[Rfam]
RNA: Glycine riboswitch aptamer
RNA sequence: UGCACACACUCUGGAGAGAUCGGCAGAAUGCCGGCGCCGAAGGGGCAAGAAGGGACCGGGGAGAACGCUUCCUCGCCAUCGCUUCCAAACUCUCAGGCAAAAGGACAGAGGGGCGCCC
Numbered sequence: 001u002g003c004a005c006a007c008a009c010u011c012u013g014g015a016g017a018g019a020u021c022g023g024c025a026g027a028a029u030g031c032c033g034g035c036g037c038c039g040a041a042g043g044g045g046c047a048a049g050a051a052g053g054g055a056c057c058g059g060g061g062a063g064a065a066c067g068c069u070u071c072c073u074c075g076c077c078a079u080c081g082c083u084u085c086c087a088a089a090c091u092c093u094c095a096g097g098c099a100a101a102a103g104g105a106c107a108g109a110g111g112g113g114c115g116c117c118c
Base pairs, nucleotide, nucleotide: 007112009110010109011108012107013106020034021033022032023031036098037097038096039094040093043092044091045090049085050084051083052082